About this RNA:
This 351-nucleotide RNA sequence from Capra hircus belongs to the Rfam family "7SK RNA". Lineage of the source: Eukaryota > Bilateria > Craniata > Tetrapoda > Capra. On this family, see Blencowe, Curr Biol 2002: "Transcription: surprising role for an elusive small nuclear RNA". Its Rfam clan is "7SK clan". A search with the family's covariance model found it, with a score of 268 bits. It is annotated as a non-coding RNA gene. The family has 45 seed sequences and 49,373 matches in Rfam 15.1. 7SK was discovered as an abundant small nuclear RNA in the mid-70s but a possible function has only recently been suggested. Two independent studies have found that 7SK RNA binds the CDK9/cyclin T complex (known as elongation factor P-TEFb). P-TEFb activates transcription by phosphorylating the C-terminal domain of RNA polymerase II. This process is negatively regulated by the 7SK RNP. The secondary structure of 7SK RNA shown here was proposed by Wasserman and Steitz on the basis of chemical modification and enzymatic cleavage experiments. This family contains a number of annotated pseudogenes and 7SK derived repeats.
RNA sequence: GGAUGUGAGGGCGAUCUGGUUGCGACAUCUGUCACCCCAUUGAUCGCCAGGGUUGAUUCGGCUGAUCUGGCUGGCUAGGCGGGUGUCCCCCUCCUCCCUCACCGCUCCAUGUGCGUCCCUCCCGCAGCUGCGCGCUCGGUCGAAGAGGACGACCAUCGCCGAUAGAGGAGGACCGGUCUUCGGUCAAGGGUAUACGAGUAGCUGCGCUCCCCUGCUAGAACCUCCAAACAAGCUCUCAAGGUCAAUAUUGCCUUGUGGCAAUAUUUGCCCUCAUCCUGGAGGACCAGGAUGUCAUUUUUGAAGUUUUUUUGCCCAUCCUCUUCUUUCUUUGCUUCUCCACCCUACACCAAA
Numbered sequence: 001g002g003a004u005g006u007g008a009g010g011g012c013g014a015u016c017u018g019g020u021u022g023c024g025a026c027a028u029c030u031g032u033c034a035c036c037c038c039a040u041u042g043a044u045c046g047c048c049a050g051g052g053u054u055g056a057u058u059c060g061g062c063u064g065a066u067c068u069g070g071c072u073g074g075c076u077a078g079g080c081g082g083g084u085g086u087c088c089c090c091c092u093c094c095u096c097c098c099u100c101a102c103c104g105c106u107c108c109a110u111g112u113g114c115g116u117c118c119c120u121c122c123c124g125c126a127g128c129u130g131c132g133c134g135c136u137c138g139g140u141c142g143a144a145g146a147g148g149a150c151g152a153c154c155a156u157c158g159c160c161g162a163u164a165g166a167g168g169a170g171g172a173c174c175g176g177u178c179u180u181c182g183g184u185c186a187a188g189g190g191u192a193u194a195c196g197a198g199u200a201g202c203u204g205c206g207c208u209c210c211c212c213u214g215c216u217a218g219a220a221c222c223u224c225c226a227a228a229c230a231a232g233c234u235c236u237c238a239a240g241g242u243c244a245a246u247a248u249u250g251c252c253u254u255g256u257g258g259c260a261a262u263a264u265u266u267g268c269c270c271u272c273a274u275c276c277u278g279g280a281g282g283a284c285c286a287g288g289a290u291g292u293c294a295u296u297u298u299u300g301a302a303g304u305u306u307u308u309u310u311g312c313c314c315a316u317c318c319u320c321u322u323c324u325u326u327c328u329u330u331g332c333u334u335c336u337c338c339a340c341c342c343u344a345c346a347c348c349a350a351a
Base pairs, nucleotide, nucleotide: 001108002107003106005102006101007100008099009098010097011096013093014092018090019089024087025086026085027084028083029082030081031080032079033078035074036073037070038069039068042067043066044065045064046062047061048060116171117170118168119167120166121165122139123138124137127135128134140162141161142160148157149156201296203294207291211288212287213286214285222281223280224279225278231277232276328351329350330349331348